[Rfam]
RNA: Bacterial RNase P class A
RNA sequence: UGAGUAGCACAGAUGGUCGCGCCUAUUAGUAAUGUUAUAAUGGCAUUAUUCAUAAUGUAAGUUAUGUUAAUUCGUUAACUUAGCUCUUUAUGAAAUCGAAAGAUCUUAGGUGAGGAAAGUCCGAGCUUCAUAGGGCAGGGUGCCGGAUAACGUCCGGUGGAGGCGACUCCAAGGCUAGUGCAAUAGAAAUAUACCGCCAGAUUAGUCUGGUAAGGGUGGAAUGGUGGAGUAAGAGCCCACCGCCUUUUUGGUAACAAAGAGGGCAUAUGUAAACCCCACUCCGAAGCAAGACCGAAUAUUUAAAGCUAUACGAUUGCCCGUCGUGCUUUAGGGUAGGUCGCUUGAGCCUAGUGGUAACAUUAGGACUAGAUAGAUGAUCAUCUAAUACAGAACUCGGCUUAUAGUGUUGCUCAUAUA
Numbered sequence: 001u002g003a004g005u006a007g008c009a010c011a012g013a014u015g016g017u018c019g020c021g022c023c024u025a026u027u028a029g030u031a032a033u034g035u036u037a038u039a040a041u042g043g044c045a046u047u048a049u050u051c052a053u054a055a056u057g058u059a060a061g062u063u064a065u066g067u068u069a070a071u072u073c074g075u076u077a078a079c080u081u082a083g084c085u086c087u088u089u090a091u092g093a094a095a096u097c098g099a100a101a102g103a104u105c106u107u108a109g110g111u112g113a114g115g116a117a118a119g120u121c122c123g124a125g126c127u128u129c130a131u132a133g134g135g136c137a138g139g140g141u142g143c144c145g146g147a148u149a150a151c152g153u154c155c156g157g158u159g160g161a162g163g164c165g166a167c168u169c170c171a172a173g174g175c176u177a178g179u180g181c182a183a184u185a186g187a188a189a190u191a192u193a194c195c196g197c198c199a200g201a202u203u204a205g206u207c208u209g210g211u212a213a214g215g216g217u218g219g220a221a222u223g224g225u226g227g228a229g230u231a232a233g234a235g236c237c238c239a240c241c242g243c244c245u246u247u248u249u250g251g252u253a254a255c256a257a258a259g260a261g262g263g264c265a266u267a268u269g270u271a272a273a274c275c276c277c278a279c280u281c282c283g284a285a286g287c288a289a290g291a292c293c294g295a296a297u298a299u300u301u302a303a304a305g306c307u308a309u310a311c312g313a314u315u316g317c318c319c320g321u322c323g324u325g326c327u328u329u330a331g332g333g334u335a336g337g338u339c340g341c342u343u344g345a346g347c348c349u350a351g352u353g354g355u356a357a358c359a360u361u362a363g364g365a366c367u368a369g370a371u372a373g374a375u376g377a378u379c380a381u382c383u384a385a386u387a388c389a390g391a392a393c394u395c396g397g398c399u400u401a402u403a404g405u406g407u408u409g410c411u412c413a414u415a416u417a
Base pairs, nucleotide, nucleotide: 001413002412003411004410005409006408007407008406009405010404011402012382013381014380015379016378017377018376020112021111022110023109024108025107028104117400118399119398121397122396123395124394125393126286127285128284129283133319134318135317136316138282139281140279141278142277143157144156145155146154147153158172159170160169161168162167173276174275178274179273180270181269182268194215195214196211197210198209199208200207201206223241224240225239226238227237242264243262244261245260246259247258248257249256250255290339291338292337293336301330302329303328304327305326306325310324311323312322313321314320347364348363349362350361351360352359353358